[Rfam]
RNA sequence: CGAGGCUACGGCGAUGGAUCCCGCCGGGGCGCUGCCCGAACCGCCACCAUGGCUGAUGGUUCCUGCCUUUGA
Numbered sequence: 001c002g003a004g005g006c007u008a009c010g011g012c013g014a015u016g017g018a019u020c021c022c023g024c025c026g027g028g029g030c031g032c033u034g035c036c037c038g039a040a041c042c043g044c045c046a047c048c049a050u051g052g053c054u055g056a057u058g059g060u061u062c063c064u065g066c067c068u069u070u071g072a
Stems, first nucleotide, its partner, number of pairs: 010025004016063003020059002043053003
Shown here is a 72-nucleotide sequence from Arthrobacter sp. Bz4, a member of the family "Fluoride riboswitch aptamer (crcB RNA motif)".
Taxonomically the source falls in Arthrobacter (Bacteria, Actinomycetota, Actinomycetes, Micrococcaceae).